[Rfam]
RNA sequence: AAACUACCCCUUAAGUAUUGACUUUUUUGCAGUUUUGGCCUCCCAGGCCAAUUUUGACAAAGUCAAUGCACACAUGGACGCCACGUGUGUAUUUAUUUUAUUACUUUUUAAUUAAAAAAAUUAUAUAUAUUUUUAUUUUUUAAUAAUUAAAAAAUAAAUAAAUACAUACGUGGCGUCCACGUCAGCUUUGACUUGGUCAAAAUUGACAUGGGGGCCAAAACUGCAAAAAAGUCAAUACUUAGGGGGCGGUUU
Numbered sequence: 001a002a003a004c005u006a007c008c009c010c011u012u013a014a015g016u017a018u019u020g021a022c023u024u025u026u027u028u029g030c031a032g033u034u035u036u037g038g039c040c041u042c043c044c045a046g047g048c049c050a051a052u053u054u055u056g057a058c059a060a061a062g063u064c065a066a067u068g069c070a071c072a073c074a075u076g077g078a079c080g081c082c083a084c085g086u087g088u089g090u091a092u093u094u095a096u097u098u099u100a101u102u103a104c105u106u107u108u109u110a111a112u113u114a115a116a117a118a119a120a121u122u123a124u125a126u127a128u129a130u131u132u133u134u135a136u137u138u139u140u141u142a143a144u145a146a147u148u149a150a151a152a153a154a155u156a157a158a159u160a161a162a163u164a165c166a167u168a169c170g171u172g173g174c175g176u177c178c179a180c181g182u183c184a185g186c187u188u189u190g191a192c193u194u195g196g197u198c199a200a201a202a203u204u205g206a207c208a209u210g211g212g213g214g215c216c217a218a219a220a221c222u223g224c225a226a227a228a229a230a231g232u233c234a235a236u237a238c239u240u241a242g243g244g245g246g247c248g249g250u251u252u
Stems, first nucleotide, its partner, number of pairs: 001252002004249002007246002012241029042212004072182002075179024
The family of this 252-nucleotide RNA sequence from Medicago truncatula is "MIR2619 microRNA precursor family". The source organism's lineage runs through Eukaryota, Streptophytina, fabids, Papilionoideae and Medicago. The match comes from Rfam's covariance-model search (135 bits).